[Rfam]
RNA sequence: GGGGGGAGGCCGGAUCCUGGGCUGUGUCCCCGGCGCCCAGUGCUCCGGGGCCUGCGCUGUUGGAUUCGCACUCCCCCUCUCCGUGGAGCUGCUGCCU
Numbered sequence: 001g002g003g004g005g006g007a008g009g010c011c012g013g014a015u016c017c018u019g020g021g022c023u024g025u026g027u028c029c030c031c032g033g034c035g036c037c038c039a040g041u042g043c044u045c046c047g048g049g050g051c052c053u054g055c056g057c058u059g060u061u062g063g064a065u066u067c068g069c070a071c072u073c074c075c076c077c078u079c080u081c082c083g084u085g086g087a088g089c090u091g092c093u094g095c096c097u
Base pairs, nucleotide, nucleotide: 001097002096003095005093006092009089010088011083012082013081019074020073021072023070024069025068026067027064028063030062031059032058033057034056035055036054040052042051043050044049
RNA: mir-8799 microRNA precursor family
Organism: Canis lupus